[Rfam]
RNA sequence: GCUGGGCACAGUGGCAUGUGCCUAUAGUCCCAGCUACUUGGGAGGCUGAGGCAAAAGGAUCGCUUGAACCCAGGAGUUCUGGGCUGUAGCGCGCUAUGCCGAUCAGGUGUCCGCACUAAGGUCGGCAUCAAUAUGGUGAACUCCUGGGAGCAGGAGACCACCGGGUUGCCUAAGGAGGAGUGAACUGGCCCAGGUCAGAAAUGGAGCAGGUCAGAACUCCCGAGCUGAUCAGUAGUGGGAUCGCACCUGUGAAUAGCCACUGCACUCCAGCCUGGGCAGCAGAGCGAGACCCCGUCUUUU
Numbered sequence: 001g002c003u004g005g006g007c008a009c010a011g012u013g014g015c016a017u018g019u020g021c022c023u024a025u026a027g028u029c030c031c032a033g034c035u036a037c038u039u040g041g042g043a044g045g046c047u048g049a050g051g052c053a054a055a056a057g058g059a060u061c062g063c064u065u066g067a068a069c070c071c072a073g074g075a076g077u078u079c080u081g082g083g084c085u086g087u088a089g090c091g092c093g094c095u096a097u098g099c100c101g102a103u104c105a106g107g108u109g110u111c112c113g114c115a116c117u118a119a120g121g122u123c124g125g126c127a128u129c130a131a132u133a134u135g136g137u138g139a140a141c142u143c144c145u146g147g148g149a150g151c152a153g154g155a156g157a158c159c160a161c162c163g164g165g166u167u168g169c170c171u172a173a174g175g176a177g178g179a180g181u182g183a184a185c186u187g188g189c190c191c192a193g194g195u196c197a198g199a200a201a202u203g204g205a206g207c208a209g210g211u212c213a214g215a216a217c218u219c220c221c222g223a224g225c226u227g228a229u230c231a232g233u234a235g236u237g238g239g240a241u242c243g244c245a246c247c248u249g250u251g252a253a254u255a256g257c258c259a260c261u262g263c264a265c266u267c268c269a270g271c272c273u274g275g276g277c278a279g280c281a282g283a284g285c286g287a288g289a290c291c292c293c294g295u296c297u298u299u300u
Base pairs, nucleotide, nucleotide: 001046002045003044004023005022006021007020008019009018010017028043029042030041048298049297050296051295052294060287061286062285063284064283065282069276070275071274072273073272074271079270080269081268082267083266085264086263087262088261089260091258093257094256095255096254097253099251104249105248106247107246108245109244110243111239112238114237115236116235117234118233120230121229122228123227124226125225126224128222129168130167131166132165134163135162136161137160138159141156142155143154144153145152146151169175170174177220178219179218180217181216186213187212188211189210190209195204196203197202

Rfam assigns this 300-nucleotide RNA sequence from Neogale vison to the family "Metazoan signal recognition particle RNA". Taxonomically the source falls in Neogale (Eukaryota, Teleostomi, Laurasiatheria, Mustelinae). Its family is annotated with signal recognition particle, endoplasmic reticulum targeting and SRP-dependent cotranslational protein targeting to membrane, signal sequence recognition in the Gene Ontology. Pairs were carried over by alignment from the consensus structure, which is taken from published work. About the family: The signal recognition particle (SRP) is a universally conserved ribonucleoprotein. It is involved in the co-translational targeting of proteins to membranes. The literature on the family includes a 2002 paper in Nucleic Acids Res by Regalia et al., "Prediction of signal recognition particle RNA genes".